Nucleotides: 081
Base pairs, nucleotide, nucleotide: 007075008074009073010072011071012070013069015067016066017065020062021061022060023059025057027055028054029053030052
Number, partner (000 for none) and nucleotide at each position: 001000a002000c003000g004000g005000a006000u007075c008074u009073u010072u011071u012070u013069g014000c015067g016066g017065u018000c019000u020062g021061g022060g023059c024000u025057u026000u027055u028054u029053g030052u031000c032000g033000g034000c035000u036000c037000a038000g039000g040000c041000c042000g043000c044000u045000a046000c047000c048000g049000g050000a051000a052030a053029c054028a055027g056000a057025a058000a059023g060022c061021c062020c063000u064000u065017a066016c067015c068000c069013c070012a071011a072010a073009a074008a075007g076000c077000a078000u079000c080000c081000g